RNA sequence: ACCCGCCCCCGAUGACAAGGUUGCCACAUGAGGCAGCCUUCCGUACCAGGAGUACGGAUAGUCGGGGGGUUUUAU
Number, nucleotide and partner (000 for none) at each position: 001a071002c000003c069004c068005g000006c067007c066008c065009c064010c000011g063012a062013u061014g000015a000016c000017a000018a000019g038020g037021u036022u035023g034024c033025c032026a000027c000028a000029u000030g000031a000032g025033g024034c023035a022036g021037c020038c019039u000040u058041c057042c056043g055044u054045a000046c000047c000048a000049g000050g000051a000052g000053u000054a044055c043056g042057g041058a040059u000060a000061g013062u012063c011064g009065g008066g007067g006068g004069g003070u000071u001072u000073u000074a000075u000